[Rfam]
RNA sequence: CGUCCUGAGUGCCAGUGUUCAGCCCCGGCUUGCUGGCCGGCAACCCUCGUAGCGCAGUGGGGUGCCCCGGGUGGUGACGGGGCCGCGGCGACCAGCCUGCGGCAAGUGCAGACC
Numbered sequence: 001c002g003u004c005c006u007g008a009g010u011g012c013c014a015g016u017g018u019u020c021a022g023c024c025c026c027g028g029c030u031u032g033c034u035g036g037c038c039g040g041c042a043a044c045c046c047u048c049g050u051a052g053c054g055c056a057g058u059g060g061g062g063u064g065c066c067c068c069g070g071g072u073g074g075u076g077a078c079g080g081g082g083c084c085g086c087g088g089c090g091a092c093c094a095g096c097c098u099g100c101g102g103c104a105a106g107u108g109c110a111g112a113c114c
Stems, first nucleotide, its partner, number of pairs: 001079004009038001011037006021030002039066003044062003048057001082103007089095001
Rfam assigns this 114-nucleotide RNA sequence from Frankia canadensis to the family "SAM (S-adenosyl methionine) riboswitch aptamer". Rfam describes the family as follows. SAM-IV is a mRNA element that regulates gene expression via direct sensing of S-adenosylmethionine (SAM or AdoMet). Gene Ontology terms of the family: regulation of gene expression and S-adenosylmethionine metabolic process. The family's consensus secondary structure is taken from published work.